[Rfam]
RNA sequence: GAGGUAUGAUGAGGUUAACAUUGGUCCGUGUUUCUGAAUUACUGUGACCGAUAAAUCUUACCAAUUUCUGAUCUC
Numbered sequence: 001g002a003g004g005u006a007u008g009a010u011g012a013g014g015u016u017a018a019c020a021u022u023g024g025u026c027c028g029u030g031u032u033u034c035u036g037a038a039u040u041a042c043u044g045u046g047a048c049c050g051a052u053a054a055a056u057c058u059u060a061c062c063a064a065u066u067u068c069u070g071a072u073c074u075c
Stems, first nucleotide, its partner, number of pairs: 001075004

Shown here is a 75-nucleotide sequence from Lathyrus oleraceus, a member of the family "Small nucleolar RNA SNORD18". The literature on the family includes a 1993 paper in Nucleic Acids Res by Prislei et al., "Two different snoRNAs are encoded in introns of amphibian and human L1 ribosomal protein genes". Pairs were carried over by alignment from the consensus structure, which was predicted with PFOLD. Its family is annotated with RNA processing and nucleolus in the Gene Ontology. It is annotated as a C/D-box small nucleolar RNA. NCBI's taxonomy places the organism under Eukaryota, Viridiplantae, Tracheophyta, Spermatophyta, Lathyrus. It scores 44 bits against the family's covariance model.